[Rfam]
RNA sequence: CUGUCUUUGGCUUCGACAGUGUUUGGACAGAACAG
Numbered sequence: 001c002u003g004u005c006u007u008u009g010g011c012u013u014c015g016a017c018a019g020u021g022u023u024u025g026g027a028c029a030g031a032a033c034a035g
Stems, first nucleotide, its partner, number of pairs: 001035004006031003010028001012027005017021001
Dot-bracket structure: ((((.(((.(.((((((...).)))))))))))))